[Rfam]
RNA sequence: GAUCACGAAGCGCGUCGACAAGCCCCCCGGCCCGACGCCUGGCAACCGCGCUGACCGCGCGGUGCCCCCGGAGGAAGUUCCGCCGUGCCCGGCCGGGCGCGGAAGAAGGUCGA
Numbered sequence: 001g002a003u004c005a006c007g008a009a010g011c012g013c014g015u016c017g018a019c020a021a022g023c024c025c026c027c028c029g030g031c032c033c034g035a036c037g038c039c040u041g042g043c044a045a046c047c048g049c050g051c052u053g054a055c056c057g058c059g060c061g062g063u064g065c066c067c068c069c070g071g072a073g074g075a076a077g078u079u080c081c082g083c084c085g086u087g088c089c090c091g092g093c094c095g096g097g098c099g100c101g102g103a104a105g106a107a108g109g110u111c112g113a
Stems, first nucleotide, its partner, number of pairs: 001080002004077001009040001012038005022031001041066003046062003050058002083102008
A member of the RNA family "SAM (S-adenosyl methionine) riboswitch aptamer" from Cellulomonas sp. JH27-2, 113 nucleotides long.
Lineage of the source: Bacteria > Bacillati > Actinomycetes > Micrococcales > Cellulomonas.
Its Rfam clan is "SAM clan".